[Rfam]
RNA sequence: GCCGGGAAGAGGAAGAAAGAGACAUCUCAAGAACACUGGGAAUGGGAACAUGGAGGAAAGCCCUGCUUUUUCGUUUGCACCUCUAGUGUUAGAGGUGCAAAGAUUUGGCAUGGAUCAUUUCCCAAUGCCUCCCAUUCCUACCGUUGUUGUGCACUCCUUCCUCUUCCUUUUGCAU
Numbered sequence: 001g002c003c004g005g006g007a008a009g010a011g012g013a014a015g016a017a018a019g020a021g022a023c024a025u026c027u028c029a030a031g032a033a034c035a036c037u038g039g040g041a042a043u044g045g046g047a048a049c050a051u052g053g054a055g056g057a058a059a060g061c062c063c064u065g066c067u068u069u070u071u072c073g074u075u076u077g078c079a080c081c082u083c084u085a086g087u088g089u090u091a092g093a094g095g096u097g098c099a100a101a102g103a104u105u106u107g108g109c110a111u112g113g114a115u116c117a118u119u120u121c122c123c124a125a126u127g128c129c130u131c132c133c134a135u136u137c138c139u140a141c142c143g144u145u146g147u148u149g150u151g152c153a154c155u156c157c158u159u160c161c162u163c164u165u166c167c168u169u170u171u172g173c174a175u
Stems, first nucleotide, its partner, number of pairs: 009166005015160003021156002026151001028149003032145003037140011049127003053123001055122005
RNA: MIR2118 microRNA precursor family